[Rfam]
RNA sequence: UGCGGUGCACGCGACUGGCGCAGUCAAGGUGGAAUCGACCACCGGGGAGCGAACGCAGUCCGCACACCGCGCGCCUGGGUGUACGGG
Dot-bracket structure: ..(.(((..(((..(([[[[[.......((((......))))..))..)))..))).).....(((((..]]]]]..))))).....